[Rfam]
RNA: c-di-AMP riboswitch aptamer (ydaO/yuaA leader)
RNA sequence: GUUUAAAAAAGGCCGAAUCUCCGGCAGAACCGGAGUACGGGGGACUAUCCUUCCCGGGGUGAAUCAGCUCUCUUAAAGCAAGGCAAGCGGACAGAGAGCGGUAGGGUACCCUUCAACCCGAACCCGUCAACUAACCUCGAAGGCCAAAAGGAGGGUAAUA
Numbered sequence: 001g002u003u004u005a006a007a008a009a010a011g012g013c014c015g016a017a018u019c020u021c022c023g024g025c026a027g028a029a030c031c032g033g034a035g036u037a038c039g040g041g042g043g044a045c046u047a048u049c050c051u052u053c054c055c056g057g058g059g060u061g062a063a064u065c066a067g068c069u070c071u072c073u074u075a076a077a078g079c080a081a082g083g084c085a086a087g088c089g090g091a092c093a094g095a096g097a098g099c100g101g102u103a104g105g106g107u108a109c110c111c112u113u114c115a116a117c118c119c120g121a122a123c124c125c126g127u128c129a130a131c132u133a134a135c136c137u138c139g140a141a142g143g144c145c146a147a148a149a150g151g152a153g154g155g156u157a158a159u160a
Stems, first nucleotide, its partner, number of pairs: 011145004019035006038139005057125003065101001067099007104119004
Dot-bracket structure: ..........((((....((((((.....))))))..(((((..............(((.....(.(((((((...................))))))).)..((((........))))...))).........)))))..))))...............